Shown here is a 73-nucleotide RNA sequence from Duncaniella freteri, a member of the family "Bacteroidetes FopS (family of paralogous sRNAs)".
The literature on the family includes a 2025 paper in Nat Commun by Ruttiger et al., "The global RNA-binding protein RbpB is a regulator of polysaccharide utilization in Bacteroides thetaiotaomicron".
About the family: The RNA-binding protein RbpB and BTncRNA_FopS sRNA are involved in the post-transcription regulation of polysaccharide utilisation loci (PUL). FopS sRNAs function as post-transcriptional repressors by binding to the vicinity of the start codon of the first mRNA of target PUL polycistrons, typically corresponding to the cognate SusC homolog, impeding translation of the respective glycan transporter.
Rfam links the family to the GO term sRNA-mediated gene silencing.
The family's consensus secondary structure is taken from published work.
By type it is a small RNA.

RNA sequence: GUGUUUUCAUGGUAUUAGAUUUAAGGUUAAAGAUACCGGGUCGUCGAGAUGAUGACCCGAUUCUUUUUUUAUU
Numbered sequence: 001g002u003g004u005u006u007u008c009a010u011g012g013u014a015u016u017a018g019a020u021u022u023a024a025g026g027u028u029a030a031a032g033a034u035a036c037c038g039g040g041u042c043g044u045c046g047a048g049a050u051g052a053u054g055a056c057c058c059g060a061u062u063c064u065u066u067u068u069u070u071a072u073u
Base pairs, nucleotide, nucleotide: 039057040056041055042054043053044052045051
Dot-bracket structure: ......................................(((((((.....)))))))................